[Rfam]
RNA: DUF805 RNA
RNA sequence: ACUACUUGGAGUCCAGAAACCAACAAAACGGGGCGUUACCGAAAAGCCAUACGAGUAGGGAAACU
Number, nucleotide and partner (000 for none) at each position: 001a000002c000003u000004a000005c000006u023007u022008g021009g020010a000011g000012u000013c000014c000015a000016g000017a000018a000019a000020c009021c008022a007023a006024c000025a000026a000027a000028a000029c000030g000031g000032g048033g047034c046035g000036u000037u000038a000039c059040c058041g000042a000043a000044a000045a000046g034047c033048c032049a000050u000051a000052c000053g000054a000055g000056u000057a000058g040059g039060g000061a000062a000063a000064c000065u000